[Rfam]
RNA sequence: GUGCAUCCAAUUGGAUUUGAACAUGUGAAUUCACCAAUUAUGAGUUGGGCGCUUUAACCAACCAUGGAUGC
Number, nucleotide and partner (000 for none) at each position: 001g000002u000003g071004c070005a069006u068007c067008c066009a000010a026011u025012u000013g000014g022015a000016u000017u000018u000019g000020a000021a000022c014023a000024u000025g011026u010027g000028a000029a000030u000031u000032c000033a000034c000035c000036a000037a000038u000039u000040a065041u064042g063043a000044g062045u061046u060047g059048g000049g000050c000051g000052c000053u000054u000055u000056a000057a000058c000059c047060a046061a045062c044063c042064a041065u040066g008067g007068a006069u005070g004071c003
RNA: Plastid-ycf2 5UTR RNA